[Rfam]
RNA sequence: AUUUGACACAGCUCUACGGUCGCCGGUCUGGCGCCUUCAUUUGGUCGUGGAGCAAUGAC
Number, nucleotide and partner (000 for none) at each position: 001a000002u000003u000004u000005g000006a000007c049008a048009c047010a000011g045012c044013u043014c000015u000016a041017c000018g035019g034020u000021c033022g032023c031024c030025g029026g000027u000028c000029u025030g024031g023032c022033g021034c019035c018036u000037u000038c000039a000040u000041u016042u000043g013044g012045u011046c000047g009048u008049g007050g000051a000052g000053c000054a000055a000056u000057g000058a000059c000